[Rfam]
RNA sequence: AAAGUUUGACAGACAAUCGCCGGCGGCUAUAGGCCGCGGGAGGAAAGUCCGGGCUCCAUAGGGCAGGGUGCUGGAUAACGUCCAGUCGACGCGAGUCGAAGGAUAGUGCCACAGAAAUGGACCGCCGAUGGCUGCUGCAAAGCAGCACAGGCAAGGAUGGAACCGAGGUGUAAGAGACCCCGAGGAACGCUGGUGACUUCGUUCCUGGUAAACCCCACUUGGAGCAAGACCUAAAGGAACGCAGCUUCUGUUAAAGGAAGCAGUCUUAGCCCGAGAUGCGUUCAGGUUGGUCGCUGGAGCCGUUCAGUAAUGAGCGGCCUAGAUAGAUGAUUGUCACUCAAGGCGGGAGGGUAGUUCCCGUUAAUACCGCGAAGUAGUACAGAACCCGGCUUACGGCAAACUUUCAUC
Numbered sequence: 001a002a003a004g005u006u007u008g009a010c011a012g013a014c015a016a017u018c019g020c021c022g023g024c025g026g027c028u029a030u031a032g033g034c035c036g037c038g039g040g041a042g043g044a045a046a047g048u049c050c051g052g053g054c055u056c057c058a059u060a061g062g063g064c065a066g067g068g069u070g071c072u073g074g075a076u077a078a079c080g081u082c083c084a085g086u087c088g089a090c091g092c093g094a095g096u097c098g099a100a101g102g103a104u105a106g107u108g109c110c111a112c113a114g115a116a117a118u119g120g121a122c123c124g125c126c127g128a129u130g131g132c133u134g135c136u137g138c139a140a141a142g143c144a145g146c147a148c149a150g151g152c153a154a155g156g157a158u159g160g161a162a163c164c165g166a167g168g169u170g171u172a173a174g175a176g177a178c179c180c181c182g183a184g185g186a187a188c189g190c191u192g193g194u195g196a197c198u199u200c201g202u203u204c205c206u207g208g209u210a211a212a213c214c215c216c217a218c219u220u221g222g223a224g225c226a227a228g229a230c231c232u233a234a235a236g237g238a239a240c241g242c243a244g245c246u247u248c249u250g251u252u253a254a255a256g257g258a259a260g261c262a263g264u265c266u267u268a269g270c271c272c273g274a275g276a277u278g279c280g281u282u283c284a285g286g287u288u289g290g291u292c293g294c295u296g297g298a299g300c301c302g303u304u305c306a307g308u309a310a311u312g313a314g315c316g317g318c319c320u321a322g323a324u325a326g327a328u329g330a331u332u333g334u335c336a337c338u339c340a341a342g343g344c345g346g347g348a349g350g351g352u353a354g355u356u357c358c359c360g361u362u363a364a365u366a367c368c369g370c371g372a373a374g375u376a377g378u379a380c381a382g383a384a385c386c387c388g389g390c391u392u393a394c395g396g397c398a399a400a401c402u403u404u405c406a407u408c
Stems, first nucleotide, its partner, number of pairs: 001404008010395001012335007020040002023037006045392003049389005054224004061272004066220005071085005086100001087098004101215002106213002108209003122156002124152003131146006164182002167179003184205006192197001228292004237283006263277005299318008

The record is a 408-nucleotide RNA from Fontibacillus panacisegetis, which matches "Bacterial RNase P class A" in Rfam. The source organism's lineage runs through Bacteria, Bacillota, Bacilli, Paenibacillaceae and Fontibacillus. A search with the family's covariance model found it, with a score of 270 bits. By type it is a ribozyme.